[Rfam]
RNA sequence: GGUUGCAAGUUUGAGGCCACAGCACAAGCACUCAUGGCACGGCCCUGUCAGAUUCCAACAAACUGUGAAUUCUGCU
Number, nucleotide and partner (000 for none) at each position: 001g000002g000003u000004u000005g000006c000007a000008a000009g000010u000011u000012u000013g045014a000015g044016g043017c042018c041019a000020c000021a076022g075023c074024a073025c000026a071027a070028g040029c000030a000031c000032u000033c000034a000035u000036g000037g000038c000039a000040c028041g018042g017043c016044c015045c013046u000047g000048u000049c065050a064051g063052a000053u061054u060055c000056c000057a000058a000059c000060a054061a053062a000063c051064u050065g049066u000067g000068a000069a000070u027071u026072c000073u024074g023075c022076u021

The record is a 76-nucleotide sequence from Crocodylus porosus, which matches "Mammalian CPEB3 ribozyme" in Rfam. Taxonomically the source falls in Crocodylus (Eukaryota, Chordata, Craniata, Crocodylidae). Gene Ontology term of the family: RNA nuclease activity.